Annotation:
A member of the RNA family "Qrr RNA" from Vibrio thalassae, 110 nucleotides long. The family has 30 seed sequences and 148 matches in Rfam 15.1. The family's RNA type in Rfam is small RNA. Rfam describes the family as follows. This family represents a set of small RNAs (the Qrr RNAs) that are thought to be involved in the regulation of quorum sensing in Vibrio species. It is believed that these RNAs, guided by a protein, Hfq, can mediate the destabilisation of the quorum-sensing master regulators LuxR/HapR mRNAs. The family's consensus secondary structure is taken from published work. Rfam links the family to the GO term quorum sensing.

RNA sequence: CGACCCUUCUUAAGCCGAGGGUCACCUAGCCAACUGACGUUGUUAGUGAACCUCUAUUGUUCACAUUUUUAUAUAGCCAGCCACACUUUUUUGUGUCUGGCUUUUUUUCU
Dot-bracket structure: .(((((............))))).................(((..((((((.......))))))......)))...((((.(((........))).))))..........